Shown here is a 105-nucleotide RNA sequence from Auanema sp. JU1783, a member of the family "SL2 RNA". From the family's description: This family represents SL2 RNA. SL2 RNA is involved in trans splicing in lower eukaryotes. Trans-splicing is a form of RNA processing. The acquisition of a spliced leader from a SL RNA is a intra-molecular reaction which precisely joins exons derived from separately transcribed RNAs. Approximately 25% of C. elegans genes are organised into polycistronic transcription units and the presence of SL2 on an mRNA is an indication the the gene is in an operon. The family's consensus secondary structure is taken from published work. On this family, see Dassanayake et al., Gene 2001: "Trans-spliced leader RNA, 5S-rRNA genes and novel variant orphan spliced-leader of the lymphatic filarial nematode Wuchereria bancrofti, and a sensitive polymerase chain reaction based detection assay". The family is grouped with related families in Rfam's "SL clan". Rfam 15.1 lists 598 matches to the family in 38 species.

RNA sequence: GGUUUUAACCCAGUAUCUCAAGGUACGUUAGGGAUCUGACCUACUCGUUAGUGUCAAUAACCUAAAUUUUUGUAAAAGCUCUUUCGGGGUAUCCGAUCGAGCACU
Numbered sequence: 001g002g003u004u005u006u007a008a009c010c011c012a013g014u015a016u017c018u019c020a021a022g023g024u025a026c027g028u029u030a031g032g033g034a035u036c037u038g039a040c041c042u043a044c045u046c047g048u049u050a051g052u053g054u055c056a057a058u059a060a061c062c063u064a065a066a067u068u069u070u071u072g073u074a075a076a077a078g079c080u081c082u083u084u085c086g087g088g089g090u091a092u093c094c095g096a097u098c099g100a101g102c103a104c105u
Stems, first nucleotide, its partner, number of pairs: 008035001009032002013028002016025001018023001037056004041051003080103001082101003086097001088094002